[Rfam]
RNA sequence: UCGAGACGCCGUGUCCGAGACCGGGCCGCUCCGGAUAAACUGCCUGCGGAACCGUGCGGCCGCAGCCUCGAAACGGUUCCGCCACGAUUCAGCCAGCAGCCGCUGCAACCCCAGGGAG
Number, nucleotide and partner (000 for none) at each position: 001u000002c000003g000004a000005g000006a000007c000008g000009c000010c000011g000012u000013g000014u000015c000016c000017g000018a000019g000020a000021c000022c000023g000024g000025g000026c000027c000028g000029c000030u000031c000032c000033g000034g000035a000036u000037a000038a000039a000040c000041u000042g000043c000044c000045u000046g000047c000048g080049g079050a078051a077052c076053c075054g000055u000056g000057c070058g069059g068060c000061c000062g000063c000064a000065g000066c000067c000068u059069c058070g057071a000072a000073a000074c000075g053076g052077u051078u050079c049080c048081g000082c000083c000084a000085c000086g000087a000088u000089u000090c000091a000092g000093c000094c105095a104096g103097c102098a000099g000100c000101c000102g097103c096104u095105g094106c000107a000108a000109c000110c000111c000112c000113a000114g000115g000116g000117a000118g000

This 118-nucleotide sequence from Streptomyces xinghaiensis belongs to the Rfam family "Streptomyces-metK RNA". The family's RNA type in Rfam is small RNA. Pairs were carried over by alignment from the consensus structure, which is taken from published work.